[Rfam]
RNA: Bacterial large subunit ribosomal RNA, nucleotides 2626 to 2873
Organism: Mycoplasmopsis fermentans
RNA sequence: GGAAUAUUGAUGAGAGCCGCUCUUAGUACGAGAGGACCGGAGUGGACGUACCACUGGUGUUCCAGUUGUUCCGCCAGGAGCAUAGCUGGGUAGCUAAGUACGGAAAGGAUAACCGCUGAAAGCAUCUAAGUGGGAAGCCUCCUCAGAGAUAAGUAUUCCCUUGAGAUUCCUUAUAGACUAUGAGGUUGAUAGGUUGGAGGUGUAAGCGUAGUAAUACGUUGAGCUGACCAAUACUAAUAAAUCGAUCG
Numbered sequence: 001g002g003a004a005u006a007u008u009g010a011u012g013a014g015a016g017c018c019g020c021u022c023u024u025a026g027u028a029c030g031a032g033a034g035g036a037c038c039g040g041a042g043u044g045g046a047c048g049u050a051c052c053a054c055u056g057g058u059g060u061u062c063c064a065g066u067u068g069u070u071c072c073g074c075c076a077g078g079a080g081c082a083u084a085g086c087u088g089g090g091u092a093g094c095u096a097a098g099u100a101c102g103g104a105a106a107g108g109a110u111a112a113c114c115g116c117u118g119a120a121a122g123c124a125u126c127u128a129a130g131u132g133g134g135a136a137g138c139c140u141c142c143u144c145a146g147a148g149a150u151a152a153g154u155a156u157u158c159c160c161u162u163g164a165g166a167u168u169c170c171u172u173a174u175a176g177a178c179u180a181u182g183a184g185g186u187u188g189a190u191a192g193g194u195u196g197g198a199g200g201u202g203u204a205a206g207c208g209u210a211g212u213a214a215u216a217c218g219u220u221g222a223g224c225u226g227a228c229c230a231a232u233a234c235u236a237a238u239a240a241a242u243c244g245a246u247c248g
Base pairs, nucleotide, nucleotide: 001159002158003157004156005155006154007153008152011145012144013143014142017045018044019043020042021041022040023039047102048101049100050099051098055096056095057094062089063088064087065086066085067082068081069080070079071078072077106140107139108138113133114132115131116130117129162245165243166242167241168240169185170184171183172182173181190236191235192234193232194231195230196229197228199225200224206219207218208217209216210215
Dot-bracket structure: ((((((((..((((..(((((((...............))))))).(((((...(((....(((((((((((....))))))..)))))....))).)))))...(((....(((((...........)))))....))).))))......))))))))..(..(((((((((.......)))))....((((((((.((.....(((((....)))))....))..))))).)))...)))).)...